[Rfam]
Shown here is a 286-nucleotide RNA sequence from Molossus molossus, a member of the family "Mason-Pfizer monkey virus packaging signal".
The family's RNA type in Rfam is cis-regulatory element.
Pairs were carried over by alignment from the consensus structure, which was predicted with PFOLD.
RNA sequence: UGGGGCCCAACAUGGGGCUCCAGCACGGGGGAUCCAGGGAAGGAUGCCAUUCAAGUGGCCGGCAGAAAGAAAAGUAAAGGAAAGAAAGUAAGAGAAAAGAGGGAAUGAUAUGGGAACCUGCUGCGUCUGCACCACUCGGGUAAGUGAAUGGUGAUUAUGGGUCAAGCAUUGAGCCAAGAUAAAAUGUUCAUUGAAGGACUAAGAAAGGCUAUCAAGGCACAAAGAGUAAAGGUAAAAAAUAAGCAUUUGUGUCAGUAUUUUGAUUAUAUUAAAGAAGUUUACCCUU
Numbered sequence: 001u002g003g004g005g006c007c008c009a010a011c012a013u014g015g016g017g018c019u020c021c022a023g024c025a026c027g028g029g030g031g032a033u034c035c036a037g038g039g040a041a042g043g044a045u046g047c048c049a050u051u052c053a054a055g056u057g058g059c060c061g062g063c064a065g066a067a068a069g070a071a072a073a074g075u076a077a078a079g080g081a082a083a084g085a086a087a088g089u090a091a092g093a094g095a096a097a098a099g100a101g102g103g104a105a106u107g108a109u110a111u112g113g114g115a116a117c118c119u120g121c122u123g124c125g126u127c128u129g130c131a132c133c134a135c136u137c138g139g140g141u142a143a144g145u146g147a148a149u150g151g152u153g154a155u156u157a158u159g160g161g162u163c164a165a166g167c168a169u170u171g172a173g174c175c176a177a178g179a180u181a182a183a184a185u186g187u188u189c190a191u192u193g194a195a196g197g198a199c200u201a202a203g204a205a206a207g208g209c210u211a212u213c214a215a216g217g218c219a220c221a222a223a224g225a226g227u228a229a230a231g232g233u234a235a236a237a238a239a240u241a242a243g244c245a246u247u248u249g250u251g252u253c254a255g256u257a258u259u260u261u262g263a264u265u266a267u268a269u270u271a272a273a274g275a276a277g278u279u280u281a282c283c284c285u286u
Base pairs, nucleotide, nucleotide: 006031007030008029013025014024036050038048039047099137100136101135102133103132109125111123112122113121145164146163147162149161152159153158171212173209174208175207220262221261222260223259224258226256227255230248231247232246233245271286272285274283
Dot-bracket structure: .....(((....((.........))...)))....(.((.......)).)................................................(((((.....(.(((.......))).)......)).))).......(((.(..((....)).))))......(.(((...............................)))..).......(((((.((..((((...........))))......)).)))))........((.(........).))

Description: This family represents a group of sequences that are related to the Mason-Pfizer monkey virus (MPMV) packaging signal. The packaging signal is located in the 5' UTR and is required for specific RNA encapsidation. For this family Rfam cites "Mutational analysis of the predicted secondary RNA structure of the Mason-Pfizer monkey virus packaging signal" (Mustafa et al., Virus Res, 2004).